[Rfam]
RNA: bZIP non canonical Hac1/Xbp1 intron
Organism: Colletotrichum noveboracense
RNA sequence: GUCCUCCUCCGACUUGACACAACGUCCUGCAGCGAUGUUGUGCGACCUGCAGUGUCAACAGUCGGAGGAC
Numbered sequence: 001g002u003c004c005u006c007c008u009c010c011g012a013c014u015u016g017a018c019a020c021a022a023c024g025u026c027c028u029g030c031a032g033c034g035a036u037g038u039u040g041u042g043c044g045a046c047c048u049g050c051a052g053u054g055u056c057a058a059c060a061g062u063c064g065g066a067g068g069a070c
Stems, first nucleotide, its partner, number of pairs: 001070006010064005021039006044056003